[Rfam]
RNA sequence: AACUUAAGUCAAUAAAGACUAAGAAUAUUGACUCAAGUACAAA
Dot-bracket structure: ..((..(((((((.............)))))))..))......
RNA: Plastid-rpl16 group II-D1 intron